The record is a 71-nucleotide RNA, which matches "Exoribonuclease-resistant RNA (xrRNA) plant-infecting virus (class 3)" in Rfam. By type it is a cis-regulatory element. Exoribonuclease-resistant RNA (xrRNA) plant-infecting virus (class 3) is a ncRNA that was reported in Plant viruses. For this family Rfam cites "The pseudoknot structure of a viral RNA reveals a conserved mechanism for programmed exoribonuclease resistance" (Gezelle et al., bioRxiv [Preprint], 2024). The family's consensus secondary structure is taken from published work.
[Rfam]
RNA sequence: CACCCAGCCGAAAGUUCUAGGUUGCAAUUGUCGGUGGGUUUCGACGUAAGCUCAAAUAUAUAGGCCUAGCA
Numbered sequence: 001c002a003c004c005c006a007g008c009c010g011a012a013a014g015u016u017c018u019a020g021g022u023u024g025c026a027a028u029u030g031u032c033g034g035u036g037g038g039u040u041u042c043g044a045c046g047u048a049a050g051c052u053c054a055a056a057u058a059u060a061u062a063g064g065c066c067u068a069g070c071a
Stems, first nucleotide, its partner, number of pairs: 003037002008034002012029002017069005